Notes: The family of this 86-nucleotide sequence from Rhizobiales bacterium PAR1 is "chrB-a RNA". The family has 163 seed sequences and 347 matches in Rfam 15.1. The match comes from Rfam's covariance-model search (51 bits).
[Rfam]
RNA sequence: GAUAAGGGGUGUCUCGCGAAGACCCCGUGAGGCCUCGGCCCAACGUUCGCGUCCACAAUCCCAAAAACGAAAGGGAUGGACGCAUG
Numbered sequence: 001g002a003u004a005a006g007g008g009g010u011g012u013c014u015c016g017c018g019a020a021g022a023c024c025c026c027g028u029g030a031g032g033c034c035u036c037g038g039c040c041c042a043a044c045g046u047u048c049g050c051g052u053c054c055a056c057a058a059u060c061c062c063a064a065a066a067a068c069g070a071a072a073g074g075g076a077u078g079g080a081c082g083c084a085u086g
Stems, first nucleotide, its partner, number of pairs: 006026005049083006
Dot-bracket structure: .....(((((...........)))))......................((((((.......................))))))...